Background:
The record is a 139-nucleotide RNA sequence from Trichechus manatus, which matches "Small Cajal body specific RNA 21" in Rfam. It scores 132 bits against the family's covariance model.

RNA sequence: UGGCUUUGUUUCCUGGGUGGUGGACUUAGCCUCUUCCACCUCCCCUCAGAUGAGCCUAGAGUAGGCAGGCUGGGCUUCCCCUCCAUGGGAGAGGCCUUCAAGAAAGGAGCCUUGCCCAGGCUGUCCUAGCCUCACAUUU
Numbered sequence: 001u002g003g004c005u006u007u008g009u010u011u012c013c014u015g016g017g018u019g020g021u022g023g024a025c026u027u028a029g030c031c032u033c034u035u036c037c038a039c040c041u042c043c044c045c046u047c048a049g050a051u052g053a054g055c056c057u058a059g060a061g062u063a064g065g066c067a068g069g070c071u072g073g074g075c076u077u078c079c080c081c082u083c084c085a086u087g088g089g090a091g092a093g094g095c096c097u098u099c100a101a102g103a104a105a106g107g108a109g110c111c112u113u114g115c116c117c118a119g120g121c122u123g124u125c126c127u128a129g130c131c132u133c134a135c136a137u138u139u
Base pairs, nucleotide, nucleotide: 002056003055004054005053006052015044016043017042019040020039021038022037023036024035067132068131069130070129072127073126074125078120079119087112088111089110
Gene Ontology terms of the family: nucleolus, RNA processing and Cajal body. About the family: scaRNAs are a specific class of small nuclear RNAs which localise to the Cajal bodies and guide the modification of RNA polymerase II transcribed spliceosomal RNAs U1, U2, U4, U5 and U12. ACA68 (SCARNA21) is a member of the H/ACA class of snoRNAs that guide the sites of modification of uridines to pseudouridines. This snoRNA was identified by computational screening and its expression in mouse experimentally verified by Northern blot and primer extension analysis. ACA68 is proposed to guide the pseudouridylation of residue U19 in U12 snRNA. The base pairs follow the family's consensus structure, which was predicted with RNAalifold.